[Rfam]
RNA sequence: ACCGCUGAGCCAUCUCUCCAGCCCCAUAAGUACAAUUUUUAAAUCAAUAUGAAGAUACUGGGAGCUGGAGAGAUGGCUCAGUGGU
Dot-bracket structure: .(((((((((((((((((((((.(.....................................).))))))))))))))))))))).
RNA: mir-3473 microRNA precursor family
Organism: Nannospalax galili